[Rfam]
RNA sequence: CUCAGGGUUUCACCCUGGGCUGACAUAUUCCGCCCUUUCAGGGCU
Numbered sequence: 001c002u003c004a005g006g007g008u009u010u011c012a013c014c015c016u017g018g019g020c021u022g023a024c025a026u027a028u029u030c031c032g033c034c035c036u037u038u039c040a041g042g043g044c045u
Stems, first nucleotide, its partner, number of pairs: 001019008032044005
Description:
The family of this 45-nucleotide RNA sequence from Candidatus Moduliflexus flocculans is "Acido-Lenti-1 RNA". A search with the family's covariance model found it, with a score of 45 bits.